[Rfam]
RNA sequence: UCGGGUAAUUCAACUACAGCGCAACUUGCAUCAAGCAAGAGUGAGGAAAGUCCGGACUUCAUAGAGCAGAAUGCUGGCUAACGGCCAGGCGGGGUAACUCGACGGAAAGUGCAACAGAAAACAAACAGCCUAAGUUGCAAAACUGGCAAUGGUGAAAUUGUGAGGUAAGAGCUCACAGAUUGUUCUGGUAACAGACAGUGUGGCAAACCCCAUUCGAAGCAAAGCCAAAUAGGGGUGGAGAGCUUGCUCGGCUCAUUUAACAUCCGGGUUGGCUGCAAGGAUUGUUAUGGUAACGUAACAGCAAGAGAAAUUGUAGUUUUAAACAGAAUCCGGCUUAUGGAUUGCCCGAAUUU
Numbered sequence: 001u002c003g004g005g006u007a008a009u010u011c012a013a014c015u016a017c018a019g020c021g022c023a024a025c026u027u028g029c030a031u032c033a034a035g036c037a038a039g040a041g042u043g044a045g046g047a048a049a050g051u052c053c054g055g056a057c058u059u060c061a062u063a064g065a066g067c068a069g070a071a072u073g074c075u076g077g078c079u080a081a082c083g084g085c086c087a088g089g090c091g092g093g094g095u096a097a098c099u100c101g102a103c104g105g106a107a108a109g110u111g112c113a114a115c116a117g118a119a120a121a122c123a124a125a126c127a128g129c130c131u132a133a134g135u136u137g138c139a140a141a142a143c144u145g146g147c148a149a150u151g152g153u154g155a156a157a158u159u160g161u162g163a164g165g166u167a168a169g170a171g172c173u174c175a176c177a178g179a180u181u182g183u184u185c186u187g188g189u190a191a192c193a194g195a196c197a198g199u200g201u202g203g204c205a206a207a208c209c210c211c212a213u214u215c216g217a218a219g220c221a222a223a224g225c226c227a228a229a230u231a232g233g234g235g236u237g238g239a240g241a242g243c244u245u246g247c248u249c250g251g252c253u254c255a256u257u258u259a260a261c262a263u264c265c266g267g268g269u270u271g272g273c274u275g276c277a278a279g280g281a282u283u284g285u286u287a288u289g290g291u292a293a294c295g296u297a298a299c300a301g302c303a304a305g306a307g308a309a310a311u312u313g314u315a316g317u318u319u320u321a322a323a324c325a326g327a328a329u330c331c332g333g334c335u336u337a338u339g340g341a342u343u344g345c346c347c348g349a350a351u352u353u
Stems, first nucleotide, its partner, number of pairs: 001349010012318007020043003025039005048336003052333005057219004064249004069215005074088005089103001090101004104210002109208002111204002126151002128147003133144004159177006179199001184195004223274004233265005240254005282301008
Rfam assigns this 353-nucleotide sequence from Spirobacillus cienkowskii to the family "Bacterial RNase P class A". A search with the family's covariance model found it, with a score of 269 bits. Lineage of the source: Bacteria > Pseudomonadati > Bdellovibrionota > Silvanigrellales > Spirobacillus. Its family is annotated with ribonuclease P activity, dimeric ribonuclease P complex and tRNA processing in the Gene Ontology.